Notes
Shown here is an 85-nucleotide sequence from Rhizobium sp. AC44/96, a member of the family "chrB-a RNA". Lineage of the source: Bacteria > Pseudomonadati > Alphaproteobacteria > Hyphomicrobiales > Rhizobium. It is annotated as a cis-regulatory element.
RNA sequence: UUGAUGGGGCAGCGAUCGCCCCACGAGGCCACGGCCGAAGAAUCGCGUCCUGUAAACCCGCUUCAACGGAGGACGCGCCAUCAUG
Dot-bracket structure: ....((((((.......)))))).....................((((((....................)))))).........
A search with the family's covariance model found it, with a score of 72 bits.